[Rfam]
RNA sequence: CAGUUUCCUGCUCCAACAGUGUUUGGAUGGAAUCC
Numbered sequence: 001c002a003g004u005u006u007c008c009u010g011c012u013c014c015a016a017c018a019g020u021g022u023u024u025g026g027a028u029g030g031a032a033u034c035c
Stems, first nucleotide, its partner, number of pairs: 003034001005032004010028001012027005017021001
Record summary:
A member of the RNA family "Iron response element I" from Chrysochloris asiatica, 35 nucleotides long. Gene Ontology term of the family: response to iron ion. The base pairs follow the family's consensus structure, which is taken from published work. For this family Rfam cites "Repression of Manduca sexta ferritin synthesis by IRP1/IRE interaction" (Zhang et al., Insect Mol Biol, 2001). It scores 35 bits against the family's covariance model. The family has 62 seed sequences and 6,829 matches in Rfam 15.1.